This 72-nucleotide RNA sequence from Oxynema aestuarii belongs to the Rfam family "tRNA".
RNA sequence: GGGCGGUUAGCUCAGUGGUAGAGCGCCUGCCUUACAAGCAGGAUGCCACUGGUUCGAAUCCAGUACCGCCCA
Numbered sequence: 001g002g003g004c005g006g007u008u009a010g011c012u013c014a015g016u017g018g019u020a021g022a023g024c025g026c027c028u029g030c031c032u033u034a035c036a037a038g039c040a041g042g043a044u045g046c047c048a049c050u051g052g053u054u055c056g057a058a059u060c061c062a063g064u065a066c067c068g069c070c071c072a
Base pairs, nucleotide, nucleotide: 001071002070003069004068005067006066007065010024011023012022013021026042027041028040029039030038048064049063050062051061052060

Source information: Lineage of the source: Bacteria > Cyanobacteriota > Oscillatoriales > Oscillatoriaceae > Oxynema aestuarii. By type it is a transfer RNA.